Record summary
This 129-nucleotide RNA from Pararhizobium antarcticum belongs to the Rfam family "Alphaproteobacterial ar14". The family has 118 seed sequences and 784 matches in Rfam 15.1. Pairs were carried over by alignment from the consensus structure. Smr14C2 was renamed NfeR1 (Nodule Formation Efficiency RNA) highly expressed in salt stress and during the symbiotic interaction on legume roots. On this family, see del Val et al., RNA Biol 2012: "A survey of sRNA families in alpha-proteobacteria".
RNA sequence: GAUGUUGCAGACAACCCACUCCUCCUCCCGGGGAAGUCUGCAGGAUCGGCAACACUCCUCCUCCCAGUUGCUGGUCGGUUCUAAUUUGAAAAGCCCGCUGCCACCUCCUCCCGGCUGCGGGCUUUUCUC
Numbered sequence: 001g002a003u004g005u006u007g008c009a010g011a012c013a014a015c016c017c018a019c020u021c022c023u024c025c026u027c028c029c030g031g032g033g034a035a036g037u038c039u040g041c042a043g044g045a046u047c048g049g050c051a052a053c054a055c056u057c058c059u060c061c062u063c064c065c066a067g068u069u070g071c072u073g074g075u076c077g078g079u080u081c082u083a084a085u086u087u088g089a090a091a092a093g094c095c096c097g098c099u100g101c102c103a104c105c106u107c108c109u110c111c112c113g114g115c116u117g118c119g120g121g122c123u124u125u126u127c128u129c
Base pairs, nucleotide, nucleotide: 007041008040009039011037012036015033016032017031044076045075046074047073048072049071050070051069052068053067091124092123093122094121095120096119097118098117100115101114